A member of the RNA family "RT-2 RNA", 265 nucleotides long. The base pairs follow the family's consensus structure, which is taken from published work. Rfam's curators put it in the seed alignment.
RNA sequence: AUGGGUCAGUCGUAGUAACCCCGUUGGGUGAAAUCAGUACCCUUUGCAGAAGGAGGGCUUGUACCCUGCCGAAAGGCUAAAACUUCCGGGUAUAUCGUUUGAAAUAUACCCUUUCCGGCAACGGGAACUUCCGAUGUAGUCAGCCGGACGCUGCUUGCAUGGUGAGUGAUUGUACGGUAGCUCAUUUCAUGGCUGGUACUACUAUGCAGUUAGAACCCGUACCCCACAAUAAUACUGUACGGAGGGAACCCCUUUUUAUGACGAG
Numbered sequence: 001a002u003g004g005g006u007c008a009g010u011c012g013u014a015g016u017a018a019c020c021c022c023g024u025u026g027g028g029u030g031a032a033a034u035c036a037g038u039a040c041c042c043u044u045u046g047c048a049g050a051a052g053g054a055g056g057g058c059u060u061g062u063a064c065c066c067u068g069c070c071g072a073a074a075g076g077c078u079a080a081a082a083c084u085u086c087c088g089g090g091u092a093u094a095u096c097g098u099u100u101g102a103a104a105u106a107u108a109c110c111c112u113u114u115c116c117g118g119c120a121a122c123g124g125g126a127a128c129u130u131c132c133g134a135u136g137u138a139g140u141c142a143g144c145c146g147g148a149c150g151c152u153g154c155u156u157g158c159a160u161g162g163u164g165a166g167u168g169a170u171u172g173u174a175c176g177g178u179a180g181c182u183c184a185u186u187u188c189a190u191g192g193c194u195g196g197u198a199c200u201a202c203u204a205u206g207c208a209g210u211u212a213g214a215a216c217c218c219g220u221a222c223c224c225c226a227c228a229a230u231a232a233u234a235c236u237g238u239a240c241g242g243a244g245g246g247a248a249c250c251c252c253u254u255u256u257u258a259u260g261a262c263g264a265g
Stems, first nucleotide, its partner, number of pairs: 004042002019028002097119003128245006135239001136202005141195005150158002161186007206238005213224001